[Rfam]
RNA: mir-19 microRNA precursor family
Organism: Hucho hucho
Nucleotides: 076
Base pairs, nucleotide, nucleotide: 003074004073006071007070008069010067011066012065013064014063015062016061017060018059019058023052024051025050026049027048028047030045031044
Number, partner (000 for none) and nucleotide at each position: 001000g002000g003074u004073c005000u006071c007070u008069g009000c010067u011066a012065g013064u014063u015062u016061u017060g018059c019058a020000u021000a022000g023052u024051u025050g026049c027048a028047c029000u030045a031044c032000a033000a034000g035000u036000a037000a038000a039000a040000u041000u042000g043000a044031g045030u046000u047028g048027u049026g050025c051024a052023a053000a054000u055000c056000u057000a058019u059018g060017c061016a062015a063014a064013a065012c066011u067010g068000u069008c070007g071006g072000u073004g074003g075000c076000c